[Rfam]
RNA sequence: AGAGAGGUCCGGGCCCCUCUGGCAACCGACGGCAGCCGGUUGUGAUGUCGGACUGACGAU
Numbered sequence: 001a002g003a004g005a006g007g008u009c010c011g012g013g014c015c016c017c018u019c020u021g022g023c024a025a026c027c028g029a030c031g032g033c034a035g036c037c038g039g040u041u042g043u044g045a046u047g048u049c050g051g052a053c054u055g056a057c058g059a060u
Stems, first nucleotide, its partner, number of pairs: 006054007022043007
terC RNA: a 60-nucleotide RNA sequence from Roseobacter sp. HKCCD8822.